Rfam assigns this 143-nucleotide RNA from Populus deltoides to the family "STAXI RNA". Rfam 15.1 lists 130 matches to the family in 68 species. The family's RNA type in Rfam is small RNA.
[Rfam]
RNA sequence: UGUUGCCUAUAGGCAGGAAAAAUACUAUUUCUUUGUAAAUGUUGCCAAUGGGCAAGAGAAAUGUUAUUACUAUGUGAAUGUUGCCUAUGGGCAGGAAAAAAAAUAUUAUUUCUUUGUGAAUGUUGCCAAUGGGCAAGAGAAAU
Numbered sequence: 001u002g003u004u005g006c007c008u009a010u011a012g013g014c015a016g017g018a019a020a021a022a023u024a025c026u027a028u029u030u031c032u033u034u035g036u037a038a039a040u041g042u043u044g045c046c047a048a049u050g051g052g053c054a055a056g057a058g059a060a061a062u063g064u065u066a067u068u069a070c071u072a073u074g075u076g077a078a079u080g081u082u083g084c085c086u087a088u089g090g091g092c093a094g095g096a097a098a099a100a101a102a103a104u105a106u107u108a109u110u111u112c113u114u115u116g117u118g119a120a121u122g123u124u125g126c127c128a129a130u131g132g133g134c135a136a137g138a139g140a141a142a143u
Stems, first nucleotide, its partner, number of pairs: 003016005022043001026039001028059006044053003065078001067098002070095002083092003102124005109140006125134003